[Rfam]
RNA: Small nucleolar RNA R64/Z200 family
RNA sequence: CUUGUGCGAUGAUGAAUAAUGAAAUCGAGAAACUCAUGUCAGACUUUAGAGAUAUUUCGAUAUCAAUGAGAAGACGUUUCAUUUGUCUGAGCCAGG
Numbered sequence: 001c002u003u004g005u006g007c008g009a010u011g012a013u014g015a016a017u018a019a020u021g022a023a024a025u026c027g028a029g030a031a032a033c034u035c036a037u038g039u040c041a042g043a044c045u046u047u048a049g050a051g052a053u054a055u056u057u058c059g060a061u062a063u064c065a066a067u068g069a070g071a072a073g074a075c076g077u078u079u080c081a082u083u084u085g086u087c088u089g090a091g092c093c094a095g096g
Stems, first nucleotide, its partner, number of pairs: 001096004006092002051064004